[Rfam]
RNA sequence: AUUCUGUUCGUCAACUACUCUCAUGGUAGCUCAUGAACUUCCCUCGCCUCUACCAACGUGGUCUGAGGAGAGAUGAUAGUGCGGCUUUUAUGGAUGUCUUUUGGCCGUACGGACAUGCCCCCCUUGCUGCUCUUCGUAGCCUGACGGGGAGGAAUCAAAAACUAGUCCUCGUU
Numbered sequence: 001a002u003u004c005u006g007u008u009c010g011u012c013a014a015c016u017a018c019u020c021u022c023a024u025g026g027u028a029g030c031u032c033a034u035g036a037a038c039u040u041c042c043c044u045c046g047c048c049u050c051u052a053c054c055a056a057c058g059u060g061g062u063c064u065g066a067g068g069a070g071a072g073a074u075g076a077u078a079g080u081g082c083g084g085c086u087u088u089u090a091u092g093g094a095u096g097u098c099u100u101u102u103g104g105c106c107g108u109a110c111g112g113a114c115a116u117g118c119c120c121c122c123c124u125u126g127c128u129g130c131u132c133u134u135c136g137u138a139g140c141c142u143g144a145c146g147g148g149g150a151g152g153a154a155u156c157a158a159a160a161a162c163u164a165g166u167c168c169u170c171g172u173u
Stems, first nucleotide, its partner, number of pairs: 007037003015029004020025001042075001043072003047068004052062004093167003096162002099160006118152002120149004129145001131144002136140001
RNA: Ascomycota telomerase RNA, nucleotides 1017 to 1189
Organism: Hypoxylon sp. CO27-5